[Rfam]
RNA sequence: GUAACCUCUCAGGGCGGGGUGAAAUUCCCCACCGGCGGUAAGCAAAAGGCCAACACCUUUCGUAAGCCCGCGAGCGCCUGUGCCUCUCUUGCGAGGGAUGCAGGGACAGCAGAUCCGGUGCAACUCCGGAGCCGACGGUCACAGUCCGGAUGAAAGAGAGAAGGA
Numbered sequence: 001g002u003a004a005c006c007u008c009u010c011a012g013g014g015c016g017g018g019g020u021g022a023a024a025u026u027c028c029c030c031a032c033c034g035g036c037g038g039u040a041a042g043c044a045a046a047a048g049g050c051c052a053a054c055a056c057c058u059u060u061c062g063u064a065a066g067c068c069c070g071c072g073a074g075c076g077c078c079u080g081u082g083c084c085u086c087u088c089u090u091g092c093g094a095g096g097g098a099u100g101c102a103g104g105g106a107c108a109g110c111a112g113a114u115c116c117g118g119u120g121c122a123a124c125u126c127c128g129g130a131g132c133c134g135a136c137g138g139u140c141a142c143a144g145u146c147c148g149g150a151u152g153a154a155a156g157a158g159a160g161a162a163g164g165a
Stems, first nucleotide, its partner, number of pairs: 006160005017029003031145002033134002035071004066132002074110002114130005136148003
RNA: FMN riboswitch aptamer (RFN element)
Organism: Celeribacter halophilus